Shown here is a 171-nucleotide RNA from Streptomyces bingchenggensis, a member of the family "c-di-AMP riboswitch aptamer (ydaO/yuaA leader)". Lineage of the source: Bacteria > Bacillati > Actinomycetes > Kitasatosporales > Streptomyces bingchenggensis. Its family is annotated with regulation of gene expression and cyclic-di-AMP binding in the Gene Ontology.

RNA sequence: GACGCAUUUGCGCCGAAGGCAGGAGCGGGGGAACCAAGGUAGGCGCCGUAGCGGCCUGGAGACGGGCCCGUUCGGCUCGGGGUGAAGCCAAGGUGCGGUCAGCCGCAUCCGGCCGGGCAACUCACAGCCCGAACCCGACAGCUCACCUCGUAGGCGUCGGUGAGGAACGAA
Numbered sequence: 001g002a003c004g005c006a007u008u009u010g011c012g013c014c015g016a017a018g019g020c021a022g023g024a025g026c027g028g029g030g031g032a033a034c035c036a037a038g039g040u041a042g043g044c045g046c047c048g049u050a051g052c053g054g055c056c057u058g059g060a061g062a063c064g065g066g067c068c069c070g071u072u073c074g075g076c077u078c079g080g081g082g083u084g085a086a087g088c089c090a091a092g093g094u095g096c097g098g099u100c101a102g103c104c105g106c107a108u109c110c111g112g113c114c115g116g117g118c119a120a121c122u123c124a125c126a127g128c129c130c131g132a133a134c135c136c137g138a139c140a141g142c143u144c145a146c147c148u149c150g151u152a153g154g155c156g157u158c159g160g161u162g163a164g165g166a167a168c169g170a171a
Stems, first nucleotide, its partner, number of pairs: 011156004025151006035079001080136003088112002115130004
This family represents a conserved RNA structure found upstream of the ydaO and yuaA genes in Bacillus subtilis and related genes in other bacteria. Pairs were carried over by alignment from the consensus structure. A search with the family's covariance model found it, with a score of 62 bits.